[Rfam]
RNA: mir-190 microRNA precursor family
Organism: Xenopus tropicalis
RNA sequence: GGUUCUGUCUGAUAUGUUUGAUAUUAGGUUGUUUUACUAAAACUCGACUAAAUAUCAUACAUAUUGCUACAGCGCC
Numbered sequence: 001g002g003u004u005c006u007g008u009c010u011g012a013u014a015u016g017u018u019u020g021a022u023a024u025u026a027g028g029u030u031g032u033u034u035u036a037c038u039a040a041a042a043c044u045c046g047a048c049u050a051a052a053u054a055u056c057a058u059a060c061a062u063a064u065u066g067c068u069a070c071a072g073c074g075c076c
Base pairs, nucleotide, nucleotide: 005072006071007070008069011065012064013063014062015061016060017059019057020056021055022054023053024052025051027049028048029047030046031045